The record is an 84-nucleotide RNA sequence from Prochlorococcus marinus, which matches "Cyanobacterial ribosomal protein S1 leader" in Rfam. The literature on the family includes a 2007 paper in Nucleic Acids Res by Weinberg et al., "Identification of 22 candidate structured RNAs in bacteria using the CMfinder comparative genomics pipeline".
RNA sequence: AUAUGUAGAGUGUUGUAUUAGUUCCUCUAGGUAGGCAGGCCUAAGGGAAAUACUUUCGCAUUGCCAUAACAGGCAUACUGCUAA
Numbered sequence: 001a002u003a004u005g006u007a008g009a010g011u012g013u014u015g016u017a018u019u020a021g022u023u024c025c026u027c028u029a030g031g032u033a034g035g036c037a038g039g040c041c042u043a044a045g046g047g048a049a050a051u052a053c054u055u056u057c058g059c060a061u062u063g064c065c066a067u068a069a070c071a072g073g074c075a076u077a078c079u080g081c082u083a084a
Stems, first nucleotide, its partner, number of pairs: 023047004028043005034082005062075004

Rfam classes the family as a cis-regulatory leader. About the family: cyano-S1 is a ncRNA recognized in the 5-prime region of genes encoding 30S ribosomal protein S1, it has been proposed as an cis regulation element.